[Rfam]
RNA: c-di-GMP-I riboswitch aptamer
RNA sequence: AUCUUAGUUGGGCAAACCCGGAGAAAUCCGGCGACGCAAAACUACAGGGGCCGAAAGGCCAGCCAGUUGCAAUC
Numbered sequence: 001a002u003c004u005u006a007g008u009u010g011g012g013c014a015a016a017c018c019c020g021g022a023g024a025a026a027u028c029c030g031g032c033g034a035c036g037c038a039a040a041a042c043u044a045c046a047g048g049g050g051c052c053g054a055a056a057g058g059c060c061a062g063c064c065a066g067u068u069g070c071a072a073u074c
Stems, first nucleotide, its partner, number of pairs: 012037002018031005040068004047064002049060003